[Rfam]
RNA sequence: UUUAAGUGCAAUCAUAAAUUUUCGUGUUCAACUUUAAUCAUUUGUCUUAUUUAAAAAAAAUUUAUAAUUAGUUUUUUUUAUUGUUAUGAGAUGAUAAAAUAUUAAUAGUAUUCUAUAUGUGACUUAUGUUUUUCAAAUUUUUUUAAAAAAAUUUAAAUAAGAUGGAUGGUAAAAGUUGUGCACGGAAAAUUAUGGUUGCGCUUAAG
Numbered sequence: 001u002u003u004a005a006g007u008g009c010a011a012u013c014a015u016a017a018a019u020u021u022u023c024g025u026g027u028u029c030a031a032c033u034u035u036a037a038u039c040a041u042u043u044g045u046c047u048u049a050u051u052u053a054a055a056a057a058a059a060a061u062u063u064a065u066a067a068u069u070a071g072u073u074u075u076u077u078u079u080a081u082u083g084u085u086a087u088g089a090g091a092u093g094a095u096a097a098a099a100u101a102u103u104a105a106u107a108g109u110a111u112u113c114u115a116u117a118u119g120u121g122a123c124u125u126a127u128g129u130u131u132u133u134c135a136a137a138u139u140u141u142u143u144u145a146a147a148a149a150a151a152u153u154u155a156a157a158u159a160a161g162a163u164g165g166a167u168g169g170u171a172a173a174a175g176u177u178g179u180g181c182a183c184g185g186a187a188a189a190u191u192a193u194g195g196u197u198g199c200g201c202u203u204a205a206g
Base pairs, nucleotide, nucleotide: 027180029178030177031176032175033174034173035172037170038169039168040167041166042165043164044163045162046161047160048159049158050157